[Rfam]
RNA sequence: AAUCAUACAGAAGGAGCUCUCUCGUCAGUGUCGGUGGGUUUUCAGACUGCGUUCUGCUAUGACAACCUUUUGGUGGAGUCUUGUUUACGAAGGUAUCGGAUCAUUUAUGGAAUCGUCAGCUCACGAAACAGUCUUCACCUUUGCAAUGGCCGUUGUUGCAGGAGGAUACUUGCGGUUGGUGUUGGAAGCAUCACCGGGACCCAUCUCGAGUUGGAGUCAAAGUUUCGUACUUGUCUGGUGUUGUGAAAGACCCUUCUGUCAUGUUGAAUUUUCACGACUCUGGCCGCACUGUUGAGGCUGGGUUGCAUUGUUGGAUCUAGGACAGGCCUUGUUGGGUAAGGUAGUCCUGGCUGUUCUCUCGCCUGAAAAUGGUGUGGAGGACAGCCCCCC
Numbered sequence: 001a002a003u004c005a006u007a008c009a010g011a012a013g014g015a016g017c018u019c020u021c022u023c024g025u026c027a028g029u030g031u032c033g034g035u036g037g038g039u040u041u042u043c044a045g046a047c048u049g050c051g052u053u054c055u056g057c058u059a060u061g062a063c064a065a066c067c068u069u070u071u072g073g074u075g076g077a078g079u080c081u082u083g084u085u086u087a088c089g090a091a092g093g094u095a096u097c098g099g100a101u102c103a104u105u106u107a108u109g110g111a112a113u114c115g116u117c118a119g120c121u122c123a124c125g126a127a128a129c130a131g132u133c134u135u136c137a138c139c140u141u142u143g144c145a146a147u148g149g150c151c152g153u154u155g156u157u158g159c160a161g162g163a164g165g166a167u168a169c170u171u172g173c174g175g176u177u178g179g180u181g182u183u184g185g186a187a188g189c190a191u192c193a194c195c196g197g198g199a200c201c202c203a204u205c206u207c208g209a210g211u212u213g214g215a216g217u218c219a220a221a222g223u224u225u226c227g228u229a230c231u232u233g234u235c236u237g238g239u240g241u242u243g244u245g246a247a248a249g250a251c252c253c254u255u256c257u258g259u260c261a262u263g264u265u266g267a268a269u270u271u272u273c274a275c276g277a278c279u280c281u282g283g284c285c286g287c288a289c290u291g292u293u294g295a296g297g298c299u300g301g302g303u304u305g306c307a308u309u310g311u312u313g314g315a316u317c318u319a320g321g322a323c324a325g326g327c328c329u330u331g332u333u334g335g336g337u338a339a340g341g342u343a344g345u346c347c348u349g350g351c352u353g354u355u356c357u358c359u360c361g362c363c364u365g366a367a368a369a370u371g372g373u374g375u376g377g378a379g380g381a382c383a384g385c386c387c388c389c390c
Stems, first nucleotide, its partner, number of pairs: 198218003201214003220232004
RNA: Ascomycota telomerase RNA, nucleotides 1100 to 1489